[Rfam]
RNA sequence: UCGUCAAGGCUAACGGAAGAAGAGAGAGAGUACAGCUUUGGAUGGUUAAGAGCAGAUAGCACUUGCGUGUGCCUAUUGGAUCUCUUUUCCGCCAAGGCUGUACCCUCUCUCUUCGUCUCUUAGCAUCUUGAUGC
Number, nucleotide and partner (000 for none) at each position: 001u000002c000003g000004u000005c130006a129007a000008g000009g124010c000011u000012a121013a120014c000015g118016g117017a116018a000019g114020a113021a112022g111023a110024g109025a108026g107027a106028g105029a000030g103031u102032a101033c100034a099035g098036c097037u096038u095039u094040g093041g000042a000043u000044g000045g000046u000047u000048a000049a000050g000051a000052g000053c000054a000055g000056a000057u000058a000059g000060c000061a000062c000063u000064u000065g000066c000067g000068u000069g000070u000071g000072c000073c000074u000075a000076u000077u000078g000079g000080a000081u000082c000083u000084c000085u000086u000087u000088u000089c000090c000091g000092c000093c040094a039095a038096g037097g036098c035099u034100g033101u032102a031103c030104c000105c028106u027107c026108u025109c024110u023111c022112u021113u020114c019115g000116u017117c016118u015119c000120u013121u012122a000123g000124c009125a000126u000127c000128u000129u006130g005131a000132u000133g000134c000

A member of the RNA family "MIR529 microRNA precursor family" from Digitaria exilis, 134 nucleotides long. The match comes from Rfam's covariance-model search (90 bits). Taxonomically the source falls in Digitaria (Eukaryota, Viridiplantae, Petrosaviidae, Poales). A reference for the family is Lu et al. (2007), "MicroRNAs in loblolly pine (Pinus taeda L.) and their association with fusiform rust gall development", Plant J.